[Rfam]
RNA sequence: AAUACUAACCUUUCAGGGUUUAUUUCUAUAGUUUGUUACUAAAGAAAUUUUACUGAAUGUGUAGAGCACCUGAAACCACAAGGAGAUACAGCAUUCUCUUCUGAGUGUGAAGCCAGCUCUUGGUGUUGCUUUUGUAUCUACCAUUUGCCAUUGAGGAUCAUUCUUUUUAUCACCUUGUUUGGAAAGGAGAGAAUGUGGUCUGAGUGGU
Numbered sequence: 001a002a003u004a005c006u007a008a009c010c011u012u013u014c015a016g017g018g019u020u021u022a023u024u025u026c027u028a029u030a031g032u033u034u035g036u037u038a039c040u041a042a043a044g045a046a047a048u049u050u051u052a053c054u055g056a057a058u059g060u061g062u063a064g065a066g067c068a069c070c071u072g073a074a075a076c077c078a079c080a081a082g083g084a085g086a087u088a089c090a091g092c093a094u095u096c097u098c099u100u101c102u103g104a105g106u107g108u109g110a111a112g113c114c115a116g117c118u119c120u121u122g123g124u125g126u127u128g129c130u131u132u133u134g135u136a137u138c139u140a141c142c143a144u145u146u147g148c149c150a151u152u153g154a155g156g157a158u159c160a161u162u163c164u165u166u167u168u169a170u171c172a173c174c175u176u177g178u179u180u181g182g183a184a185a186g187g188a189g190a191g192a193a194u195g196u197g198g199u200c201u202g203a204g205u206g207g208u
Stems, first nucleotide, its partner, number of pairs: 002040001006035003010031002015027004049065003054061001075208005091196012105161003116148002121143004125138001127136003164184004169179001171177002